[Rfam]
RNA sequence: UGCCUGGCCCCAUGUGGAAGACUAGUGAUUUUGUUGUUCUAUAGCUCAUCUCAUGACAACAAGUCACAGUCUACCUUACGGUGUCCGGCC
Numbered sequence: 001u002g003c004c005u006g007g008c009c010c011c012a013u014g015u016g017g018a019a020g021a022c023u024a025g026u027g028a029u030u031u032u033g034u035u036g037u038u039c040u041a042u043a044g045c046u047c048a049u050c051u052c053a054u055g056a057c058a059a060c061a062a063g064u065c066a067c068a069g070u071c072u073a074c075c076u077u078a079c080g081g082u083g084u085c086c087g088g089c090c
Stems, first nucleotide, its partner, number of pairs: 002089003006085003010081002013078002016075002019072005025067007033060006

Notes:
mir-7 microRNA precursor family: a 90-nucleotide RNA from Sphenodon punctatus. Rfam's curators write: This family represents the microRNA (miRNA) precursor mir-7. The family has 132 seed sequences and 2,589 matches in Rfam 15.1. Gene Ontology terms of the family: RISC complex and miRNA-mediated post-transcriptional gene silencing. Taxonomically the source falls in Sphenodon (Eukaryota, Metazoa, Deuterostomia, Lepidosauria). A search with the family's covariance model found it, with a score of 76 bits. The family's consensus secondary structure was predicted with PFOLD.